[Rfam]
This 111-nucleotide sequence from Arachis duranensis belongs to the Rfam family "Plant small nucleolar RNA R71". Its family is annotated with nucleolus and RNA processing in the Gene Ontology. The family has 25 seed sequences and 278,378 matches in Rfam 15.1. The source organism's lineage runs through Eukaryota, Euphyllophyta, Gunneridae, Fabaceae and Arachis. A reference for the family is Brown et al. (2003), "Plant snoRNAs: functional evolution and new modes of gene expression", Trends Plant Sci. The match comes from Rfam's covariance-model search (42 bits).
RNA sequence: AAAGCAUGUCAGAGGGACACCUUUUGGUCAUCUGCUUGAAUCUUUUCCAAGCUUCAUAGAGGGAUUCACCAUCUUUCUGUUUGAAGGUCUGAACAUCCACUCUAUGAUUGC
Number, nucleotide and partner (000 for none) at each position: 001a000002a000003a109004g108005c106006a105007u000008g000009u000010c000011a000012g000013a000014g000015g000016g000017a000018c000019a000020c000021c000022u000023u000024u000025u000026g000027g000028u000029c000030a000031u000032c000033u000034g000035c000036u000037u000038g000039a000040a000041u000042c000043u000044u000045u000046u000047c000048c000049a000050a000051g000052c000053u000054u000055c000056a000057u000058a000059g076060a075061g000062g073063g000064a000065u000066u000067c000068a000069c000070c000071a000072u000073c062074u000075u060076u059077c000078u000079g000080u000081u000082u000083g000084a000085a000086g000087g000088u000089c000090u000091g000092a000093a000094c000095a000096u000097c000098c000099a000100c000101u000102c000103u000104a000105u006106g005107a000108u004109u003110g000111c000